[Rfam]
RNA sequence: GCCAGUGACACGGGGUGCCGCCCCAGUGAUGGUUGGGAUAUUCCCGCCAUUGCGCCUUAUGCGGCUGAGAUGACACCCGUUGAACCUGAUCCAGUUAGCACUGGCGAAGGGAAUGUCCACGGCUUUUCCU
Numbered sequence: 001g002c003c004a005g006u007g008a009c010a011c012g013g014g015g016u017g018c019c020g021c022c023c024c025a026g027u028g029a030u031g032g033u034u035g036g037g038a039u040a041u042u043c044c045c046g047c048c049a050u051u052g053c054g055c056c057u058u059a060u061g062c063g064g065c066u067g068a069g070a071u072g073a074c075a076c077c078c079g080u081u082g083a084a085c086c087u088g089a090u091c092c093a094g095u096u097a098g099c100a101c102u103g104g105c106g107a108a109g110g111g112a113a114u115g116u117c118c119a120c121g122g123c124u125u126u127u128c129c130u
Stems, first nucleotide, its partner, number of pairs: 007117004011079004016073001017065005085110003091104004
Shown here is a 130-nucleotide RNA sequence from Corynebacterium phocae, a member of the family "TPP riboswitch aptamer (THI element)". Pairs were carried over by alignment from the consensus structure, which is taken from published work. Rfam describes the family as follows. Vitamin B(1) in its active form thiamin pyrophosphate (TPP) is an essential coenzyme that is synthesised by coupling of pyrimidine and thiazole moieties in bacteria.